Histone 3' UTR stem-loop: a 45-nucleotide RNA from Clarias magur. The family's RNA type in Rfam is cis-regulatory element. Rfam describes the family as follows. The mRNAs of metazoan histone genes lack a poly-A tail. 3' end processing occurs at a site between a highly conserved stem-loop (modelled by this family) and a purine rich region around 20 nts downstream (the histone downstream element, or HDE).

[Rfam]
RNA sequence: ACAACGGCUCUUUUAAGAGCCACCCACAUCUCCAAUACAAAAGAG
Numbered sequence: 001a002c003a004a005c006g007g008c009u010c011u012u013u014u015a016a017g018a019g020c021c022a023c024c025c026a027c028a029u030c031u032c033c034a035a036u037a038c039a040a041a042a043g044a045g
Stems, first nucleotide, its partner, number of pairs: 006021006
Dot-bracket structure: .....((((((....))))))........................
The match comes from Rfam's covariance-model search (40 bits).